Actinobacteria sRNA Ms_IGR-5: a 226-nucleotide RNA from Streptomyces pluripotens. The organism belongs to Streptomyces, within Bacteria. Pairs were carried over by alignment from the consensus structure. For this family Rfam cites "Identification of small RNAs in Mycobacterium smegmatis using heterologous Hfq" (Li et al., RNA, 2013).

RNA sequence: ACACGAGAAGGGAGGUGGUUCGGCAGAUGUAUGAAAACCGGACGCGUGAGGUGGCUGCGGGCUAAGCGGUCCGCCACCCCAUCCAGUGCGGUGCCGGACCAGCACGUGCCACAAGCGUGCAGCCGGCCCAAUCCCAAGCAGUCACCCGACCCGCGAGCUCGCCGGCACGUCCGGCCGGCUUCUGCCGCCGCAAGGUGGCGGAACCCGAGCUCGCGGGUCGUCUGCG
Numbered sequence: 001a002c003a004c005g006a007g008a009a010g011g012g013a014g015g016u017g018g019u020u021c022g023g024c025a026g027a028u029g030u031a032u033g034a035a036a037a038c039c040g041g042a043c044g045c046g047u048g049a050g051g052u053g054g055c056u057g058c059g060g061g062c063u064a065a066g067c068g069g070u071c072c073g074c075c076a077c078c079c080c081a082u083c084c085a086g087u088g089c090g091g092u093g094c095c096g097g098a099c100c101a102g103c104a105c106g107u108g109c110c111a112c113a114a115g116c117g118u119g120c121a122g123c124c125g126g127c128c129c130a131a132u133c134c135c136a137a138g139c140a141g142u143c144a145c146c147c148g149a150c151c152c153g154c155g156a157g158c159u160c161g162c163c164g165g166c167a168c169g170u171c172c173g174g175c176c177g178g179c180u181u182c183u184g185c186c187g188c189c190g191c192a193a194g195g196u197g198g199c200g201g202a203a204c205c206c207g208a209g210c211u212c213g214c215g216g217g218u219c220g221u222c223u224g225c226g
Stems, first nucleotide, its partner, number of pairs: 015058005060129002062126002147220013161179006